Source information: Rfam assigns this 86-nucleotide sequence from Arabis alpina to the family "Small nucleolar RNA snoR110". The match comes from Rfam's covariance-model search (57 bits). The literature on the family includes a 2002 paper in Curr Biol by Marker et al., "Experimental RNomics: identification of 140 candidates for small non-messenger RNAs in the plant Arabidopsis thaliana". Rfam links the family to the GO terms nucleolus and RNA processing. Rfam classes the family as an H/ACA-box small nucleolar RNA. Rfam 15.1 lists 42 matches to the family in 15 species.

RNA sequence: AGUACAUAACUUUCGCCUUGUAUGUUUUGAGUUUUCUCCUUUUUGUACGUAAGGAAAUCACUGUUUUACUUUGGUGGCAUAAAUCU
Numbered sequence: 001a002g003u004a005c006a007u008a009a010c011u012u013u014c015g016c017c018u019u020g021u022a023u024g025u026u027u028u029g030a031g032u033u034u035u036c037u038c039c040u041u042u043u044u045g046u047a048c049g050u051a052a053g054g055a056a057a058u059c060a061c062u063g064u065u066u067u068a069c070u071u072u073g074g075u076g077g078c079a080u081a082a083a084u085c086u
Stems, first nucleotide, its partner, number of pairs: 011079001013077005020069002030062003035057001037055005